[Rfam]
RNA sequence: GUCGAGAUCGCGCGGGCGGAGGCCUCGCCAACCUGGUCAGGGCCGGAAGGCAGCAGCCACAACGAAUUCACCUUCGGGUCGCGCGGUCUCACCUCU
Numbered sequence: 001g002u003c004g005a006g007a008u009c010g011c012g013c014g015g016g017c018g019g020a021g022g023c024c025u026c027g028c029c030a031a032c033c034u035g036g037u038c039a040g041g042g043c044c045g046g047a048a049g050g051c052a053g054c055a056g057c058c059a060c061a062a063c064g065a066a067u068u069c070a071c072c073u074u075c076g077g078g079u080c081g082c083g084c085g086g087u088c089u090c091a092c093c094u095c096u
Base pairs, nucleotide, nucleotide: 004090005089006088007087008086009085010084011083012082013081014080017076018075019074020073021072022071025065026064027063034059035058036057037056042051043050044049

The record is a 96-nucleotide RNA from Asticcacaulis excentricus, which matches "Bacterial small signal recognition particle RNA" in Rfam. The source organism's lineage runs through Bacteria, Pseudomonadota, Alphaproteobacteria, Asticcacaulis and Asticcacaulis excentricus. The family is grouped with related families in Rfam's "SRP clan". Gene Ontology terms of the family: SRP-dependent cotranslational protein targeting to membrane, signal sequence recognition and signal recognition particle, plasma membrane targeting. The family's RNA type in Rfam is non-coding RNA gene. Rfam describes the family as follows. The signal recognition particle (SRP) is a universally conserved ribonucleoprotein involved in the co-translational targeting of proteins to membranes.